[Rfam]
RNA sequence: GGCCCAAAUUCGAAGUUGAGUAGAUCGGUAGGAUCAGCUGACCAUACUAAUCUACUCUACCUCAAGUUUGCGCCC
Dot-bracket structure: (((.(((((..((.((.((((((.(.((((.(.((....)).).)))).).)))))).)).))..))))).))).
RNA: mir-5928 microRNA precursor family